Rfam assigns this 84-nucleotide RNA sequence from bacterium HR35 to the family "tRNA".
The family's RNA type in Rfam is transfer RNA.
A search with the family's covariance model found it, with a score of 55 bits.
The family's consensus secondary structure is taken from published work.

[Rfam]
RNA sequence: GGGCAGGUGGCGGAAUAGGCAGACGCGCAAGGUUCAGAGCCUUGUGGCUGAAAAGCCGUGAGGGUUCGAAUCCCUCCCUGCCCA
Numbered sequence: 001g002g003g004c005a006g007g008u009g010g011c012g013g014a015a016u017a018g019g020c021a022g023a024c025g026c027g028c029a030a031g032g033u034u035c036a037g038a039g040c041c042u043u044g045u046g047g048c049u050g051a052a053a054a055g056c057c058g059u060g061a062g063g064g065u066u067c068g069a070a071u072c073c074c075u076c077c078c079u080g081c082c083c084a
Stems, first nucleotide, its partner, number of pairs: 001083007010026003028044005060076005